Rfam assigns this 77-nucleotide sequence from Heterocephalus glaber to the family "Small nucleolar RNA SNORD81". NCBI's taxonomy places the organism under Eukaryota, Chordata, Vertebrata, Euarchontoglires, Heterocephalus. A search with the family's covariance model found it, with a score of 99 bits. Rfam 15.1 lists 317 matches to the family in 202 species. Its Rfam clan is "SNORD26 clan".
[Rfam]
RNA sequence: CAGAAUACAUGAUGAUCUCACCUCAACUUGAACUCUCUCCCUGAUUACUUGAUGAUGAGGAAAGGUCUGAUAUUCUG
Dot-bracket structure: (((((((...............................................................)))))))